[Rfam]
RNA sequence: GUUUGGAGGGAAGGCAAGAUGUUGGCAUAGCUGUUGAGUCUGAAGCCCUGCUAUGCCAUCAAAUUGCCGUCUUUCUGUUCC
Dot-bracket structure: ....(((((((.(((((..((.(((((((((..................))))))))).))..))))).))))))).....